[Rfam]
A member of the RNA family "mir-1 microRNA precursor family" from Varanus komodoensis, 77 nucleotides long. The base pairs follow the family's consensus structure, which was predicted with RNAalifold. A reference for the family is Lee and Ambros (2001), "An extensive class of small RNAs in Caenorhabditis elegans", Science. A search with the family's covariance model found it, with a score of 49 bits. Rfam describes the family as follows. This family represents the microRNA (miRNA) mir-1 family. miRNAs are transcribed as ~70nt precursors (modelled here) and subsequently processed by the Dicer enzyme to give a ~22nt product. In this case the mature sequence comes from the 3' arm of the precursor. The extents of the hairpin precursors are not generally known and are estimated based on hairpin prediction. The products are thought to have regulatory roles through complementarity to mRNA. The involvement of Dicer in miRNA processing suggests a relationship with the phenomenon of RNA interference. miRNAs are numbered based on the sequence of the mature RNA. This family also contains the mir-206 from human, which appears to be related to mir-1.
RNA sequence: CAAACACCUCCAUACUUCUUUAUUAACUAAAAGGAGUCACAUGGAUUUUAGUUAAUAAAGAAGUAUGGAGGUGUUCA
Number, nucleotide and partner (000 for none) at each position: 001c000002a000003a000004a000005c000006a000007c071008c070009u069010c068011c067012a066013u065014a064015c063016u062017u061018c060019u059020u058021u057022a056023u055024u054025a053026a000027c051028u050029a049030a048031a047032a000033g000034g000035a000036g000037u000038c000039a000040c000041a000042u000043g000044g000045a000046u000047u031048u030049u029050a028051g027052u000053u025054a024055a023056u022057a021058a020059a019060g018061a017062a016063g015064u014065a013066u012067g011068g010069a009070g008071g007072u000073g000074u000075u000076c000077a000